[Rfam]
RNA sequence: GGUUAUCCAAUAGUAAUUGAACCUACAAAUUUGUCAAUUAUGAGUUGGACGCUUUAACCAUUCAGCCGUGGAUGC
Numbered sequence: 001g002g003u004u005a006u007c008c009a010a011u012a013g014u015a016a017u018u019g020a021a022c023c024u025a026c027a028a029a030u031u032u033g034u035c036a037a038u039u040a041u042g043a044g045u046u047g048g049a050c051g052c053u054u055u056a057a058c059c060a061u062u063c064a065g066c067c068g069u070g071g072a073u074g075c
Stems, first nucleotide, its partner, number of pairs: 004074005011025003040069003044066006051059001